[Rfam]
RNA sequence: ACUCUAAGCCGCCCGGUGGAUGGCUCGGCUCGGGGCGCCGACGAAGGGCGUGGCAAGCUGCGAUAAGCCCCGGCGAGGCGCAGGCAGCCGUCGAACCGGGGAUUCCCGAAUGGGACCUCCCGCGGCUUAUGCCGCACUCCGGGGUUUAUCCCCGGAGGGGGAACGCGGGGAAUUGAAACAUCUUAGUACCCGCAGGAAAAGAAAGCAAAAGCGAUGCCGUGAGUAGGGGCGACCGAAAACGGCAGAGGGCAAACUGAACCCCGGACCGACGAGGUUCGGGGGAUGUGGGGUUGUAGGGCCCCCGUAUGAGACCCUCGCGGGUGAAGCCGAAGUCCGCUGGAACGCGGCGCCGGAGAGGGUGAUAGCCCCGUAGGCGUAAGCCCGCAGGGUCUCGGGGGACCCUGAGUACCGUCGGUUGGAUAUCCGGCGGGAAGCUGGGAGGCAUCGGCUCCCAACCCUAAAUACGUCCCGAGACCGAUAGCGAACUAGUACCGUGAGGGAAAGCUGAAAAGCACCCCGGGAGGGGGGUGAAAAGAGCCUGAAACCGGGCGGCGAUAGGAG
Numbered sequence: 001a002c003u004c005u006a007a008g009c010c011g012c013c014c015g016g017u018g019g020a021u022g023g024c025u026c027g028g029c030u031c032g033g034g035g036c037g038c039c040g041a042c043g044a045a046g047g048g049c050g051u052g053g054c055a056a057g058c059u060g061c062g063a064u065a066a067g068c069c070c071c072g073g074c075g076a077g078g079c080g081c082a083g084g085c086a087g088c089c090g091u092c093g094a095a096c097c098g099g100g101g102a103u104u105c106c107c108g109a110a111u112g113g114g115a116c117c118u119c120c121c122g123c124g125g126c127u128u129a130u131g132c133c134g135c136a137c138u139c140c141g142g143g144g145u146u147u148a149u150c151c152c153c154g155g156a157g158g159g160g161g162a163a164c165g166c167g168g169g170g171a172a173u174u175g176a177a178a179c180a181u182c183u184u185a186g187u188a189c190c191c192g193c194a195g196g197a198a199a200a201g202a203a204a205g206c207a208a209a210a211g212c213g214a215u216g217c218c219g220u221g222a223g224u225a226g227g228g229g230c231g232a233c234c235g236a237a238a239a240c241g242g243c244a245g246a247g248g249g250c251a252a253a254c255u256g257a258a259c260c261c262c263g264g265a266c267c268g269a270c271g272a273g274g275u276u277c278g279g280g281g282g283a284u285g286u287g288g289g290g291u292u293g294u295a296g297g298g299c300c301c302c303c304g305u306a307u308g309a310g311a312c313c314c315u316c317g318c319g320g321g322u323g324a325a326g327c328c329g330a331a332g333u334c335c336g337c338u339g340g341a342a343c344g345c346g347g348c349g350c351c352g353g354a355g356a357g358g359g360u361g362a363u364a365g366c367c368c369c370g371u372a373g374g375c376g377u378a379a380g381c382c383c384g385c386a387g388g389g390u391c392u393c394g395g396g397g398g399a400c401c402c403u404g405a406g407u408a409c410c411g412u413c414g415g416u417u418g419g420a421u422a423u424c425c426g427g428c429g430g431g432a433a434g435c436u437g438g439g440a441g442g443c444a445u446c447g448g449c450u451c452c453c454a455a456c457c458c459u460a461a462a463u464a465c466g467u468c469c470c471g472a473g474a475c476c477g478a479u480a481g482c483g484a485a486c487u488a489g490u491a492c493c494g495u496g497a498g499g500g501a502a503a504g505c506u507g508a509a510a511a512g513c514a515c516c517c518c519g520g521g522a523g524g525g526g527g528g529u530g531a532a533a534a535g536a537g538c539c540u541g542a543a544a545c546c547g548g549g550c551g552g553c554g555a556u557a558g559g560a561g
Stems, first nucleotide, its partner, number of pairs: 008553009022539001023505002027476002029473006036466002046107003049062003068101006077089003112121003137157008164195001165193005175182002205212002216243005226234002246459004254288003264276004300397004310391004326375003332348001334347004351355001357369003409430007437453005492499002

The family of this 561-nucleotide part of an RNA from Pyrococcus horikoshii is "Archaeal large subunit ribosomal RNA". The organism belongs to Pyrococcus horikoshii, within Archaea. For this family Rfam cites "Crystal structure of the ribosome at 5.5 A resolution" (Yusupov et al., Science, 2001).